[Rfam]
RNA sequence: AGCAGAGUAAAUAUCUGUGCGUUAAGUGUCAGACAGACGGGGAGUUGCUGUCUGAACGAAAAGAUUUUCUUGCGGUACAGAUAUUGCAUCCCGCUGCU
Numbered sequence: 001a002g003c004a005g006a007g008u009a010a011a012u013a014u015c016u017g018u019g020c021g022u023u024a025a026g027u028g029u030c031a032g033a034c035a036g037a038c039g040g041g042g043a044g045u046u047g048c049u050g051u052c053u054g055a056a057c058g059a060a061a062a063g064a065u066u067u068u069c070u071u072g073c074g075g076u077a078c079a080g081a082u083a084u085u086g087c088a089u090c091c092c093g094c095u096g097c098u
Stems, first nucleotide, its partner, number of pairs: 001098005010085010020074003026057002029055008040091003044087001061071004
RNA: THF (Tetrahydrofolate) riboswitch aptamer